Source information
Shown here is a 79-nucleotide RNA sequence from Aureimonas sp. Leaf454, a member of the family "Makes More Granules Regulator RNA (mmgR)". Lineage of the source: Bacteria > Pseudomonadati > Pseudomonadota > Aurantimonadaceae > Aureimonas. A reference for the family is Corbino et al. (2005), "Evidence for a second class of S-adenosylmethionine riboswitches and other regulatory RNA motifs in alpha-proteobacteria", Genome Biol. The match comes from Rfam's covariance-model search (56 bits).
[Rfam]
RNA sequence: UGCCGCCGCCCUUCCCGGGGCGUUUCCUCCCUAGACUCAGACCGCGCUGCCCCAACAGUGCGGUUUUUUUUCGCCUGUC
Numbered sequence: 001u002g003c004c005g006c007c008g009c010c011c012u013u014c015c016c017g018g019g020g021c022g023u024u025u026c027c028u029c030c031c032u033a034g035a036c037u038c039a040g041a042c043c044g045c046g047c048u049g050c051c052c053c054a055a056c057a058g059u060g061c062g063g064u065u066u067u068u069u070u071u072c073g074c075c076u077g078u079c
Stems, first nucleotide, its partner, number of pairs: 008021004041064009
Dot-bracket structure: .......((((......))))...................(((((((((......)))))))))...............
Rfam 15.1 lists 1,791 matches to the family in 918 species.